The family of this 144-nucleotide sequence from Brevibacterium ravenspurgense is "FMN riboswitch aptamer (RFN element)". Lineage of the source: Bacteria > Bacillati > Actinomycetota > Actinomycetes > Brevibacterium.
RNA sequence: CAGAUGUUCCGGGGACGGUGAAAUUCCGUACCGGCGGUGACAGUCCGCGACCCGGCUGCUCCACGGCACACGCCGUGCGAACACCCGGCUGACUCGGUGCAAUUCCGAGACCGACAGUAAGAGUCUGGAUGGGAGGAACACAGU
Numbered sequence: 001c002a003g004a005u006g007u008u009c010c011g012g013g014g015a016c017g018g019u020g021a022a023a024u025u026c027c028g029u030a031c032c033g034g035c036g037g038u039g040a041c042a043g044u045c046c047g048c049g050a051c052c053c054g055g056c057u058g059c060u061c062c063a064c065g066g067c068a069c070a071c072g073c074c075g076u077g078c079g080a081a082c083a084c085c086c087g088g089c090u091g092a093c094u095c096g097g098u099g100c101a102a103u104u105c106c107g108a109g110a111c112c113g114a115c116a117g118u119a120a121g122a123g124u125c126u127g128g129a130u131g132g133g134a135g136g137a138a139c140a141c142a143g144u
Stems, first nucleotide, its partner, number of pairs: 005140006016028003030124002032113002034048004043111002052088004093109005115127003